[Rfam]
RNA: RNase MRP
RNA sequence: GGAUUUGUUCUCAACUUGCUUUCGGAGCUGCGUCCGAGUUCAUUUGUAACUCAUUUGCUCUGGGGAAAGUCCCCGAACCCCUGUCGGAGAGCGCUCGCACUGUGAAUCGUGCUGUCCUUCUCUCCGCUUGCCGUACAUUGAAGGUCAACCUGAGUUGGCAAGCAUCCCAGGAGUAGGAAAUAGUUCAAUAAUACAGUUAUGCAAGUGUGAUAACUUACGGAAUGGGGCUUAUUGAGAAUGAAUC
Numbered sequence: 001g002g003a004u005u006u007g008u009u010c011u012c013a014a015c016u017u018g019c020u021u022u023c024g025g026a027g028c029u030g031c032g033u034c035c036g037a038g039u040u041c042a043u044u045u046g047u048a049a050c051u052c053a054u055u056u057g058c059u060c061u062g063g064g065g066a067a068a069g070u071c072c073c074c075g076a077a078c079c080c081c082u083g084u085c086g087g088a089g090a091g092c093g094c095u096c097g098c099a100c101u102g103u104g105a106a107u108c109g110u111g112c113u114g115u116c117c118u119u120c121u122c123u124c125c126g127c128u129u130g131c132c133g134u135a136c137a138u139u140g141a142a143g144g145u146c147a148a149c150c151u152g153a154g155u156u157g158g159c160a161a162g163c164a165u166c167c168c169a170g171g172a173g174u175a176g177g178a179a180a181u182a183g184u185u186c187a188a189u190a191a192u193a194c195a196g197u198u199a200u201g202c203a204a205g206u207g208u209g210a211u212a213a214c215u216u217a218c219g220g221a222a223u224g225g226g227g228c229u230u231a232u233u234g235a236g237a238a239u240g241a242a243u244c
Stems, first nucleotide, its partner, number of pairs: 002244010014206006022063007036052005067230003071227004083095001085093002097112004116177003122173004129164003135155002143150002